[Rfam]
Background
Shown here is a 102-nucleotide sequence from Thermococcus barophilus, a member of the family "Pab19 RNA". NCBI's taxonomy places the organism under Archaea, Methanobacteriati, Methanobacteriota, Thermococcus, Thermococcus barophilus. By type it is an H/ACA-box small nucleolar RNA. Rfam describes the family as follows. By using various computational and experimental approaches in three Pyrococcus genomes seven H/ACA sRNAs and 15 pseudouridine resides on rRNA were identified. One H/ACA motif was shown to guide up to three distinct pseudouridylations.
RNA sequence: GCCCCCGAAUAAGGGGGCGCAAGCCCAGGCACAAGACGGCGGCGUCGGGGGGACUGGGUGCAAAGCACCCAACAUGAACCCCGCCCUCCAGCCAUGGGCACA
Numbered sequence: 001g002c003c004c005c006c007g008a009a010u011a012a013g014g015g016g017g018c019g020c021a022a023g024c025c026c027a028g029g030c031a032c033a034a035g036a037c038g039g040c041g042g043c044g045u046c047g048g049g050g051g052g053a054c055u056g057g058g059u060g061c062a063a064a065g066c067a068c069c070c071a072a073c074a075u076g077a078a079c080c081c082c083g084c085c086c087u088c089c090a091g092c093c094a095u096g097g098g099c100a101c102a
Stems, first nucleotide, its partner, number of pairs: 001018006023099005028093003046083005055071007